Rfam assigns this 90-nucleotide RNA sequence from Dietzia sp. ANT_WB102 to the family "Actino-pnp RNA".

[Rfam]
RNA sequence: GGCGGUCCUCGGUAGUGGCCGCCGGAGCCCGACGCCCGCAGCGGUAACCGCGGUGGGCAGACGCUCCGGCCGCUUCGAUCGAAGACCGAA
Numbered sequence: 001g002g003c004g005g006u007c008c009u010c011g012g013u014a015g016u017g018g019c020c021g022c023c024g025g026a027g028c029c030c031g032a033c034g035c036c037c038g039c040a041g042c043g044g045u046a047a048c049c050g051c052g053g054u055g056g057g058c059a060g061a062c063g064c065u066c067c068g069g070c071c072g073c074u075u076c077g078a079u080c081g082a083a084g085a086c087c088g089a090a
Stems, first nucleotide, its partner, number of pairs: 003088005009082005017074003021070008
Record summary:
The source organism's lineage runs through Bacteria, Bacillati, Actinomycetota, Dietziaceae and Dietzia.